This 275-nucleotide RNA sequence from Aotus nancymaae belongs to the Rfam family "Mason-Pfizer monkey virus packaging signal". By type it is a cis-regulatory element.

RNA sequence: UGGCGCCCAACGUGGGGCAAAGAGUACGAGGGAUCCUGUGAGGGAUGUCGUCAGAAGCGGCCGAACCAGAACUCAGCAAGUCCAGAGAGGAGACGACGCGGGAGCCUGCUGCGGUCUCGCCCUCUGGUGAGUGGACGACGGUAUCGUGGGUCAGGAAAUCAGUCAGCAUAAGAUGUUUAUUGAAGGUCUGGGCAAAGCAUUAAAGGCGCGAGGAGUAAAGGUUAAAGUAAAAGAUUUGUGUAAAUAUUUUGAUUAUAUUAAAGACAUUUGCCCGU
Numbered sequence: 001u002g003g004c005g006c007c008c009a010a011c012g013u014g015g016g017g018c019a020a021a022g023a024g025u026a027c028g029a030g031g032g033a034u035c036c037u038g039u040g041a042g043g044g045a046u047g048u049c050g051u052c053a054g055a056a057g058c059g060g061c062c063g064a065a066c067c068a069g070a071a072c073u074c075a076g077c078a079a080g081u082c083c084a085g086a087g088a089g090g091a092g093a094c095g096a097c098g099c100g101g102g103a104g105c106c107u108g109c110u111g112c113g114g115u116c117u118c119g120c121c122c123u124c125u126g127g128u129g130a131g132u133g134g135a136c137g138a139c140g141g142u143a144u145c146g147u148g149g150g151u152c153a154g155g156a157a158a159u160c161a162g163u164c165a166g167c168a169u170a171a172g173a174u175g176u177u178u179a180u181u182g183a184a185g186g187u188c189u190g191g192g193c194a195a196a197g198c199a200u201u202a203a204a205g206g207c208g209c210g211a212g213g214a215g216u217a218a219a220g221g222u223u224a225a226a227g228u229a230a231a232a233g234a235u236u237u238g239u240g241u242a243a244a245u246a247u248u249u250u251g252a253u254u255a256u257a258u259u260a261a262a263g264a265c266a267u268u269u270g271c272c273c274g275u
Stems, first nucleotide, its partner, number of pairs: 006032003012027003037047003086125003089121002095116001097113005132153003136150001159202001161200001162198002209251005215245002219237005260275001263272001265270001
On this family, see Mustafa et al., Virus Res 2004: "Mutational analysis of the predicted secondary RNA structure of the Mason-Pfizer monkey virus packaging signal". Gene Ontology term of the family: viral genome packaging.